The record is a 91-nucleotide sequence from Bacillus sp. cl95, which matches "c-di-GMP-I riboswitch aptamer" in Rfam. The base pairs follow the family's consensus structure, which is taken from published work. A search with the family's covariance model found it, with a score of 60 bits.

RNA sequence: UAGUUUUAAGGGCAACCUAUCUGAAAAGAUAAGGACGCAAAACUAUAGGGGCUACAGUAAGAAAACCUUGCUAUGCCAGCCAGUUGCGACG
Numbered sequence: 001u002a003g004u005u006u007u008a009a010g011g012g013c014a015a016c017c018u019a020u021c022u023g024a025a026a027a028g029a030u031a032a033g034g035a036c037g038c039a040a041a042a043c044u045a046u047a048g049g050g051g052c053u054a055c056a057g058u059a060a061g062a063a064a065a066c067c068u069u070g071c072u073a074u075g076c077c078a079g080c081c082a083g084u085u086g087c088g089a090c091g
Stems, first nucleotide, its partner, number of pairs: 012038002017033001018031005041085004048081002050077003057071004